[Rfam]
RNA sequence: GCUUCCUACAGAGGCGUGUCUGUAGUUCCCUGUCUUUGGACACGGAAGAAUUGGAGGAAAAGAAACAUGGACUUAGAGAAGUCUGGGGCCAGUUUGCUCCCUGUGGGCUCAAGAUCAACCAUCCAAGAGAG
Numbered sequence: 001g002c003u004u005c006c007u008a009c010a011g012a013g014g015c016g017u018g019u020c021u022g023u024a025g026u027u028c029c030c031u032g033u034c035u036u037u038g039g040a041c042a043c044g045g046a047a048g049a050a051u052u053g054g055a056g057g058a059a060a061a062g063a064a065a066c067a068u069g070g071a072c073u074u075a076g077a078g079a080a081g082u083c084u085g086g087g088g089c090c091a092g093u094u095u096g097c098u099c100c101c102u103g104u105g106g107g108c109u110c111a112a113g114a115u116c117a118a119c120c121a122u123c124c125a126a127g128a129g130a131g
Base pairs, nucleotide, nucleotide: 002057003056004055005054006053015044016043017042018041019040020039021038025029069124070123071122073121091109092108093107094106095105096104097103

A member of the RNA family "Small nucleolar RNA SNORA38" from Crocuta crocuta, 131 nucleotides long.
The family's RNA type in Rfam is H/ACA-box small nucleolar RNA.
About the family: ACA38 is a member of the H/ACA class of snoRNA that guide the sites of modification of uridines to pseudouridines.